Shown here is a 121-nucleotide RNA sequence from Enterovirus betacoxsackie, a member of the family "Enteroviral 3' UTR element". For this family Rfam cites "Structural requirements of the higher order RNA kissing element in the enteroviral 3'UTR" (Wang et al., Nucleic Acids Res, 1999). About the family: This RNA structure is found in the 3' UTR of various enteroviruses. The overall structure forms the origin of replication (OriR) for the initiation of (-) strand RNA synthesis. Pseudoknots have also been predicted in this structure. Rfam links the family to the GO term RNA replication. It is annotated as a cis-regulatory element.
[Rfam]
RNA sequence: AAAUGGUUGGACUCUUUUUAAAUUAGAGACAAUUUGAAAUGAUUUGAAUUGGCUUAACCCUACUGUACUAACCGAACUAGAUGACGGUACAGUAGGGGUAAAUUCUCCGCAUUCGGUGCGG
Numbered sequence: 001a002a003a004u005g006g007u008u009g010g011a012c013u014c015u016u017u018u019u020a021a022a023u024u025a026g027a028g029a030c031a032a033u034u035u036g037a038a039a040u041g042a043u044u045u046g047a048a049u050u051g052g053c054u055u056a057a058c059c060c061u062a063c064u065g066u067a068c069u070a071a072c073c074g075a076a077c078u079a080g081a082u083g084a085c086g087g088u089a090c091a092g093u094a095g096g097g098g099u100a101a102a103u104u105c106u107c108c109g110c111a112u113u114c115g116g117u118g119c120g121g
Stems, first nucleotide, its partner, number of pairs: 024057001026055003030051009058097012071117006107121004